[Rfam]
RNA sequence: GACAUCUUGUCGGAGUGCCAUUAUGGCUGAGACCGUUUAUUCGGGAUCCGUUGAACCUGAUCAGGCUAGAACCUGCGAAGGAAACAAGCGUAAUAAUCAU
Numbered sequence: 001g002a003c004a005u006c007u008u009g010u011c012g013g014a015g016u017g018c019c020a021u022u023a024u025g026g027c028u029g030a031g032a033c034c035g036u037u038u039a040u041u042c043g044g045g046a047u048c049c050g051u052u053g054a055a056c057c058u059g060a061u062c063a064g065g066c067u068a069g070a071a072c073c074u075g076c077g078a079a080g081g082a083a084a085c086a087a088g089c090g091u092a093a094u095a096a097u098c099a100u
Stems, first nucleotide, its partner, number of pairs: 006088005011050004016044001017027004034043002056081003062075004
The family of this 100-nucleotide RNA sequence from Shewanella frigidimarina is "TPP riboswitch aptamer (THI element)". Rfam links the family to the GO term thiamine pyrophosphate binding. The organism belongs to Shewanella frigidimarina, within Bacteria.